Background:
Enterobacteria greA leader: a 124-nucleotide RNA sequence from Enterobacter sp. 638. It is one of the family's seed sequences. The family's RNA type in Rfam is cis-regulatory leader. Gene Ontology term of the family: regulation of gene expression. On this family, see Naville and Gautheret, Genome Biol 2010: "Premature terminator analysis sheds light on a hidden world of bacterial transcriptional attenuation".
RNA sequence: GCCAUACUACGGUGCAACGCCCUGUAAAGUAAACGAUGACCCAUAGUGAACUUCGCGGUAAAAUACGUAUCAAAUUGAAAAAUUGCUGCUGACCUGGAACUUUGCUUCCGGGUCAGUUUUCUUU
Numbered sequence: 001g002c003c004a005u006a007c008u009a010c011g012g013u014g015c016a017a018c019g020c021c022c023u024g025u026a027a028a029g030u031a032a033a034c035g036a037u038g039a040c041c042c043a044u045a046g047u048g049a050a051c052u053u054c055g056c057g058g059u060a061a062a063a064u065a066c067g068u069a070u071c072a073a074a075u076u077g078a079a080a081a082a083u084u085g086c087u088g089c090u091g092a093c094c095u096g097g098a099a100c101u102u103u104g105c106u107u108c109c110g111g112g113u114c115a116g117u118u119u120u121c122u123u124u
Base pairs, nucleotide, nucleotide: 001040003038004037005036010035011034014030015029041048057071058070059069060068088117089116090115091114092113093112094111095110096109097108098107